Nucleotides: 077
Base pairs, nucleotide, nucleotide: 003075004074006072009070011069012068014066015065016064017063019062020061021060022059023058024057025056026055028053030051031050033048034047035046036045
Number, partner (000 for none) and nucleotide at each position: 001000c002000a003075u004074g005000c006072a007000c008000u009070c010000a011069a012068g013000g014066g015065g016064g017063g018000u019062u020061c021060c022059c023058u024057c025056a026055g027000u028053c029000g030051g031050g032000a033048u034047u035046g036045c037000a038000a039000g040000a041000g042000g043000g044000c045036g046035c047034a048033g049000g050031c051030c052000a053028g054000c055026c056025u057024g058023a059022g060021g061020g062019a063017c064016c065015c066014c067000a068012c069011u070009g071000g072006u073000g074004c075003a076000u077000g